[Rfam]
RNA sequence: UCCAUCAGCUAAUGGGCUUUUUAAAUUAUUAAUUUUAUGCAGAACUGAAACUGCAUAAGUGAUGGAGCCCCCAUAGAAGCAUUAAGUGCAAUUUAAUGUAGUUGUUUUUGUUUGUAUAAGGUACUUGUGUAUCACCGAAGGUACAUAAGGAACUUGUAUAUCAUUAAUGACUUGCAAGUGCUAAGAGUGAACAAAUUCAGACAAGCGUCAGUAGAGAUUGCACCUCUAUUGGCGUUUU
Numbered sequence: 001u002c003c004a005u006c007a008g009c010u011a012a013u014g015g016g017c018u019u020u021u022u023a024a025a026u027u028a029u030u031a032a033u034u035u036u037a038u039g040c041a042g043a044a045c046u047g048a049a050a051c052u053g054c055a056u057a058a059g060u061g062a063u064g065g066a067g068c069c070c071c072c073a074u075a076g077a078a079g080c081a082u083u084a085a086g087u088g089c090a091a092u093u094u095a096a097u098g099u100a101g102u103u104g105u106u107u108u109u110g111u112u113u114g115u116a117u118a119a120g121g122u123a124c125u126u127g128u129g130u131a132u133c134a135c136c137g138a139a140g141g142u143a144c145a146u147a148a149g150g151a152a153c154u155u156g157u158a159u160a161u162c163a164u165u166a167a168u169g170a171c172u173u174g175c176a177a178g179u180g181c182u183a184a185g186a187g188u189g190a191a192c193a194a195a196u197u198c199a200g201a202c203a204a205g206c207g208u209c210a211g212u213a214g215a216g217a218u219u220g221c222a223c224c225u226c227u228a229u230u231g232g233c234g235u236u237u238u
Stems, first nucleotide, its partner, number of pairs: 001066007038055005045200005067181002070178001079099007086223007100172007205235012
RNA: FuFi-1 RNA